RNA sequence: CCUUGGGCGGUGCCUCCAGGACUGUCCAAUCUGAGAAUGGUAUCUAUAAGGUCAAUCUCAGGUUUGUCAGCCUGUGAAGUGCCAUCCCUUU
Dot-bracket structure: ....(((.(((((.((..((.(((.(.(((((((((.((.............)).))))))))).).))).))..)).)))))..)))...
The record is a 91-nucleotide RNA sequence from Nannospalax galili, which matches "mir-1388 microRNA precursor family" in Rfam. The literature on the family includes a 2009 paper in BMC Genomics by Soares et al., "Parallel DNA pyrosequencing unveils new zebrafish microRNAs". It scores 83 bits against the family's covariance model.